[Rfam]
RNA sequence: CGUCGAUGAUGAUACUUCCAAAGGCUUGUUUCUCAGAAACAUUCGCAGUGGCCGCCUAAGAGCUUUCGCCUUCGCCAGGCUUGAGAGCUAAUGCUGCUACAUCUCCUUCCUUGGAUGUCUGAGACU
Numbered sequence: 001c002g003u004c005g006a007u008g009a010u011g012a013u014a015c016u017u018c019c020a021a022a023g024g025c026u027u028g029u030u031u032c033u034c035a036g037a038a039a040c041a042u043u044c045g046c047a048g049u050g051g052c053c054g055c056c057u058a059a060g061a062g063c064u065u066u067c068g069c070c071u072u073c074g075c076c077a078g079g080c081u082u083g084a085g086a087g088c089u090a091a092u093g094c095u096g097c098u099a100c101a102u103c104u105c106c107u108u109c110c111u112u113g114g115a116u117g118u119c120u121g122a123g124a125c126u
Stems, first nucleotide, its partner, number of pairs: 002125003062088006
RNA: Small nucleolar RNA SNORD14
Organism: Eucalyptus grandis